[Rfam]
RNA sequence: CUCUUAUCAAGAGUAGGUGGAGGGACUGGCCCGAUGAAACCCGGCAACCUCCUUGGACUCUCUAGUCCGAGAAAGGUGCCAAUUCCUGCAGAUGCUGCGCAUCUGACAGAUGAGAG
Numbered sequence: 001c002u003c004u005u006a007u008c009a010a011g012a013g014u015a016g017g018u019g020g021a022g023g024g025a026c027u028g029g030c031c032c033g034a035u036g037a038a039a040c041c042c043g044g045c046a047a048c049c050u051c052c053u054u055g056g057a058c059u060c061u062c063u064a065g066u067c068c069g070a071g072a073a074a075g076g077u078g079c080c081a082a083u084u085c086c087u088g089c090a091g092a093u094g095c096u097g098c099g100c101a102u103c104u105g106a107c108a109g110a111u112g113a114g115a116g
Stems, first nucleotide, its partner, number of pairs: 001116008013042001016041003022032003026088001028086002043080004048076002050072002053069001084108001089105006

Annotation:
Rfam assigns this 116-nucleotide RNA sequence from Calderihabitans maritimus to the family "SAM riboswitch aptamer (S box leader)". It scores 91 bits against the family's covariance model. Rfam describes the family as follows. The SAM riboswitch is found upstream of a number of genes which code for proteins involved in methionine or cysteine biosynthesis in Gram-positive bacteria. The SAM riboswitch acts at the level of transcription termination control.